[Rfam]
RNA sequence: AUUAAUUACAAUGAAAACAGGGUGAUGCGUCGCCCAUUCGAUUGCUGAAAACAGGCUCGGACAGACAGCGUGAAUCGGUCGUUCCCCGGCUCACGUUCCACAGAAGCCUCUCAUCAAUCUUCAGGGUAGCUUAGCUACCCUUUUUUACCGGAGUUUG
Numbered sequence: 001a002u003u004a005a006u007u008a009c010a011a012u013g014a015a016a017a018c019a020g021g022g023u024g025a026u027g028c029g030u031c032g033c034c035c036a037u038u039c040g041a042u043u044g045c046u047g048a049a050a051a052c053a054g055g056c057u058c059g060g061a062c063a064g065a066c067a068g069c070g071u072g073a074a075u076c077g078g079u080c081g082u083u084c085c086c087c088g089g090c091u092c093a094c095g096u097u098c099c100a101c102a103g104a105a106g107c108c109u110c111u112c113a114u115c116a117a118u119c120u121u122c123a124g125g126g127u128a129g130c131u132u133a134g135c136u137a138c139c140c141u142u143u144u145u146u147a148c149c150g151g152a153g154u155u156u157g
Base pairs, nucleotide, nucleotide: 013155014154020035021034022033023032024031025030037124040122041118042117043116044115047112048111059099060098063096070094071093072092073091075089076088077087078086

About this RNA: A member of the RNA family "sroC RNA" from Pantoea alhagi, 157 nucleotides long. For this family Rfam cites "RNomics in Escherichia coli detects new sRNA species and indicates parallel transcriptional output in bacteria" (Vogel et al., Nucleic Acids Res, 2003). The source organism's lineage runs through Bacteria, Pseudomonadati, Gammaproteobacteria, Erwiniaceae and Pantoea. From the family's description: This family consists of a number of bacterial sroC RNA genes of around 160 bases in length. sroC is found in several Enterobacterial species.